[Rfam]
RNA sequence: GAGGGUGGGCCCCUCGGAAUCGCUAUACAGGUAGAGAUUCCAAACCACCAUAAGCUGCUGUGGUCAAAAGCCAUGGUAGUGAGCGUUAUGGAAAAGGCGAGACUUGACCUCGUCAGGU
Numbered sequence: 001g002a003g004g005g006u007g008g009g010c011c012c013c014u015c016g017g018a019a020u021c022g023c024u025a026u027a028c029a030g031g032u033a034g035a036g037a038u039u040c041c042a043a044a045c046c047a048c049c050a051u052a053a054g055c056u057g058c059u060g061u062g063g064u065c066a067a068a069a070g071c072c073a074u075g076g077u078a079g080u081g082a083g084c085g086u087u088a089u090g091g092a093a094a095a096g097g098c099g100a101g102a103c104u105u106g107a108c109c110u111c112g113u114c115a116g117g118u
Base pairs, nucleotide, nucleotide: 001015002014003013004012005011016041017040018039019038020037021036023034024033025032026031046117048091049090050089051088052087053086054080055079057077058076059075061073062072063071064070096114097113098112099111100110101109

The record is a 118-nucleotide RNA from Methanosarcina acetivorans, which matches "Group II catalytic intron D1-D4-2" in Rfam. On this family, see Bonen and Vogel, Trends Genet 2001: "The ins and outs of group II introns". Lineage of the source: Archaea > Methanobacteriati > Methanobacteriota > Methanosarcina > Methanosarcina acetivorans. Group II introns are found in rRNA, tRNA and mRNA of organelles in fungi, plants and protists, and also in mRNA in bacteria.